[Rfam]
RNA sequence: UCCAUAUUUCUUCCACGCCAACGCAGAAUAUAACAUUUAUUUGUCAACUUCACUCCUUUCAAUGAUGAAGUUGUUUCCGCGUCGAGCGAAGAACGACUUGACCCGUUGCUGGGCACCUGGUUUUGAAAGGUCGUUCCGAUCCUUUCGGAUUCACUGGGAAUCAGCUGUGGUCACAGAC
Number, nucleotide and partner (000 for none) at each position: 001u000002c000003c000004a000005u000006a000007u000008u000009u000010c000011u000012u000013c000014c000015a000016c088017g087018c086019c000020a000021a000022c081023g080024c079025a000026g000027a000028a000029u000030a044031u043032a042033a041034c000035a000036u000037u000038u000039a000040u000041u033042u032043g031044u030045c073046a072047a071048c070049u069050u000051c067052a066053c000054u000055c000056c000057u000058u000059u000060c000061a000062a000063u000064g000065a000066u052067g051068a000069a049070g048071u047072u046073g045074u000075u000076u000077c000078c000079g024080c023081g022082u000083c000084g000085a000086g018087c017088g016089a000090a000091g000092a000093a000094c000095g000096a000097c000098u000099u000100g000101a171102c170103c000104c167105g166106u000107u000108g000109c000110u000111g000112g000113g000114c000115a000116c158117c157118u000119g000120g154121u153122u000123u149124u148125g000126a000127a144128a143129g142130g141131u000132c000133g000134u000135u000136c000137c000138g000139a000140u000141c130142c129143u128144u127145u000146c000147g000148g124149a123150u000151u000152c000153a121154c120155u000156g000157g117158g116159a000160a000161u000162c000163a000164g000165c000166u105167g104168u000169g000170g102171u101172c000173a000174c000175a000176g000177a000178c000
A member of the RNA family "Small nucleolar RNA snR32" from Penicillium atrosanguineum, 178 nucleotides long. It is annotated as an H/ACA-box small nucleolar RNA. Gene Ontology terms of the family: nucleolus and RNA processing. The base pairs follow the family's consensus structure, which was predicted with WAR.